[Rfam]
RNA sequence: AGGCAGUGAUGAAGAACUGAGGAAGUCAUGCACCACUCUGAUGAUUUUAAUCAAUCUGUGCUGAUAACCUUCUUCAUACCCAUUGAUUCUGAGCCU
Numbered sequence: 001a002g003g004c005a006g007u008g009a010u011g012a013a014g015a016a017c018u019g020a021g022g023a024a025g026u027c028a029u030g031c032a033c034c035a036c037u038c039u040g041a042u043g044a045u046u047u048u049a050a051u052c053a054a055u056c057u058g059u060g061c062u063g064a065u066a067a068c069c070u071u072c073u074u075c076a077u078a079c080c081c082a083u084u085g086a087u088u089c090u091g092a093g094c095c096u
Stems, first nucleotide, its partner, number of pairs: 001096004

This 96-nucleotide RNA sequence from Prunus persica belongs to the Rfam family "Small nucleolar RNA Z221/R21b". The family has 12 seed sequences and 588 matches in Rfam 15.1. Gene Ontology terms of the family: nucleolus and RNA processing. NCBI's taxonomy places the organism under Eukaryota, Mesangiospermae, eudicotyledons, Rosales, Prunus.